[Rfam]
RNA sequence: GGGUGCCCGGUCCCGCCAGACGGCGGCGGGGCAGGUUUUCGCGCUGGUCGGGCCGCCAGCG
Numbered sequence: 001g002g003g004u005g006c007c008c009g010g011u012c013c014c015g016c017c018a019g020a021c022g023g024c025g026g027c028g029g030g031g032c033a034g035g036u037u038u039u040c041g042c043g044c045u046g047g048u049c050g051g052g053c054c055g056c057c058a059g060c061g
Base pairs, nucleotide, nucleotide: 005032006031007030008029010027011026012025042061043060044059045058046057047056048055

Shown here is a 61-nucleotide sequence from Sphingomonas sp. Leaf17, a member of the family "nhaA-I RNA". By type it is a riboswitch. NCBI's taxonomy places the organism under Bacteria, Pseudomonadati, Pseudomonadota, Sphingomonadales, Sphingomonas. About the family: Acidobacteria, Alphaproteobacteria, Betaproteobacteria and Gammaproteobacteria, Verrucomicrobia, cand. division NC10. It scores 53 bits against the family's covariance model.